[Rfam]
RNA sequence: UGGUAGAUGCACCCUGAUUCAAAACCCUCAGUUUCGCGGCUGGGGGUUUUUCUU
Numbered sequence: 001u002g003g004u005a006g007a008u009g010c011a012c013c014c015u016g017a018u019u020c021a022a023a024a025c026c027c028u029c030a031g032u033u034u035c036g037c038g039g040c041u042g043g044g045g046g047u048u049u050u051u052c053u054u
Base pairs, nucleotide, nucleotide: 002013003012004011025046026045027044028043029042030041031040032039033038
Nitrogen stress-induced RNA 1: a 54-nucleotide sequence from Vacuolonema iberomarrocanum. By type it is a small RNA. A reference for the family is Ionescu et al. (2010), "Heterocyst-specific transcription of NsiR1, a non-coding RNA encoded in a tandem array of direct repeats in cyanobacteria", J Mol Biol. The base pairs follow the family's consensus structure.